[Rfam]
RNA sequence: GCGGUGCCGCCGCCCAAUCGCCGCGAGGCGAGCCGGGGAUCCAGGUACCUGGGGUGCAUCCGCGCGAGCGGUAGGGGCCGGUUCCGUCCCGAACCCGUCAGCUAACCCGGUCGGCGGUCGAUGGAAGGGAA
Numbered sequence: 001g002c003g004g005u006g007c008c009g010c011c012g013c014c015c016a017a018u019c020g021c022c023g024c025g026a027g028g029c030g031a032g033c034c035g036g037g038g039a040u041c042c043a044g045g046u047a048c049c050u051g052g053g054g055u056g057c058a059u060c061c062g063c064g065c066g067a068g069c070g071g072u073a074g075g076g077g078c079c080g081g082u083u084c085c086g087u088c089c090c091g092a093a094c095c096c097g098u099c100a101g102c103u104a105a106c107c108c109g110g111u112c113g114g115c116g117g118u119c120g121a122u123g124g125a126a127g128g129g130a131a
Stems, first nucleotide, its partner, number of pairs: 011116004018031005032111006042051002052096003060071004074090004
The family of this 131-nucleotide RNA sequence from Micromonospora sp. MW-13 is "c-di-AMP riboswitch aptamer (ydaO/yuaA leader)".